[Rfam]
RNA sequence: ACCUUAUCAAGAGUGGCGGAGGAACAGGUCCUGUGAAGCCCGGCAACCUGACUGUGAAGAACAGACAAGGUGCUAAUUCCUGCGGUUUAUCCGAAAGAUGAGGA
Numbered sequence: 001a002c003c004u005u006a007u008c009a010a011g012a013g014u015g016g017c018g019g020a021g022g023a024a025c026a027g028g029u030c031c032u033g034u035g036a037a038g039c040c041c042g043g044c045a046a047c048c049u050g051a052c053u054g055u056g057a058a059g060a061a062c063a064g065a066c067a068a069g070g071u072g073c074u075a076a077u078u079c080c081u082g083c084g085g086u087u088u089a090u091c092c093g094a095a096a097g098a099u100g101a102g103g104a
Stems, first nucleotide, its partner, number of pairs: 002103007013041001015040003021031003025082004042074004047070002050066001052064002078096001083093003
A member of the RNA family "SAM riboswitch aptamer (S box leader)" from Ruminococcus sp. CAG:624, 104 nucleotides long.
The match comes from Rfam's covariance-model search (81 bits).
From the family's description: The SAM riboswitch is found upstream of a number of genes which code for proteins involved in methionine or cysteine biosynthesis in Gram-positive bacteria.
NCBI's taxonomy places the organism under Bacteria, Bacillota, Clostridia, Oscillospiraceae, Ruminococcus.